The family of this 146-nucleotide sequence from Orycteropus afer is "small Cajal body-specific RNA 17".
About the family: scaRNAs are a specific class of small nuclear RNAs which localise to the Cajal bodies and guide the modification of RNA polymerase II transcribed spliceosomal RNAs U1, U2, U4, U5 and U12.
The match comes from Rfam's covariance-model search (78 bits).
On this family, see Darzacq et al., EMBO J 2002: "Cajal body-specific small nuclear RNAs: a novel class of 2'-O-methylation and pseudouridylation guide RNAs".
The family has 6 seed sequences and 262 matches in Rfam 15.1.
Its family is annotated with nucleolus, RNA processing and Cajal body in the Gene Ontology.
The organism belongs to Orycteropus afer, within Eukaryota.
RNA sequence: UACUUCCGUAGCCCCGGCCCAACCCCUAGAUGAUCCCGCGAUAUUUUCCUUGUAUGAUCGGGCCCCAUUGUGGGCAGUGUCUUUUGCCCAAACCCUAAGAGGAUUAUGAAAAUACUUCAGGAGACUUGGGGCCAGGGGACUGGGUG
Numbered sequence: 001u002a003c004u005u006c007c008g009u010a011g012c013c014c015c016g017g018c019c020c021a022a023c024c025c026c027u028a029g030a031u032g033a034u035c036c037c038g039c040g041a042u043a044u045u046u047u048c049c050u051u052g053u054a055u056g057a058u059c060g061g062g063c064c065c066c067a068u069u070g071u072g073g074g075c076a077g078u079g080u081c082u083u084u085u086g087c088c089c090a091a092a093c094c095c096u097a098a099g100a101g102g103a104u105u106a107u108g109a110a111a112a113u114a115c116u117u118c119a120g121g122a123g124a125c126u127u128g129g130g131g132c133c134a135g136g137g138g139a140c141u142g143g144g145u146g
Base pairs, nucleotide, nucleotide: 001146002145003144005143006142008140009139012138013137014136015135023131024130025129026128058098060096061095062094070087071086072085073084074083